[Rfam]
RNA sequence: UCUUAUGUGGAUGAUGAUGACUGUUGCUGAGACUCUGUGAUUGCUCAGUCUUAAAGUAAAUGCCCUGAGGCACAGAGG
Dot-bracket structure: .....(((...((....)).......(((((............))))).....................)))......